[Rfam]
RNA sequence: UUCAAUGUUGUCAAUGAUGCAUUCAUUUUGGAACUGAAUUUAAGUGAUCCAACUCUUAAUCGUCACUACCACUGAGACAACAUUGAG
Numbered sequence: 001u002u003c004a005a006u007g008u009u010g011u012c013a014a015u016g017a018u019g020c021a022u023u024c025a026u027u028u029u030g031g032a033a034c035u036g037a038a039u040u041u042a043a044g045u046g047a048u049c050c051a052a053c054u055c056u057u058a059a060u061c062g063u064c065a066c067u068a069c070c071a072c073u074g075a076g077a078c079a080a081c082a083u084u085g086a087g
Base pairs, nucleotide, nucleotide: 001087002086003085004084005083006082007081008080009079010078011077012076
Small nucleolar RNA SNORD70: an 87-nucleotide RNA sequence from Suricata suricatta. Rfam classes the family as a C/D-box small nucleolar RNA. Gene Ontology terms of the family: nucleolus and RNA processing. snoRNA HBII-234 belongs to the C/D family of snoRNAs. It is the human orthologue of the mouse MBII-234 and is predicted to guide 2'O-ribose methylation of the small 18S rRNA on position A512. It is hosted, together with HBII-95, by the core C/D box snoRNA protein encoding gene NOP5/NOP58. For this family Rfam cites "RNomics: an experimental approach that identifies 201 candidates for novel, small, non-messenger RNAs in mouse" (Huttenhofer et al., EMBO J, 2001). It scores 98 bits against the family's covariance model.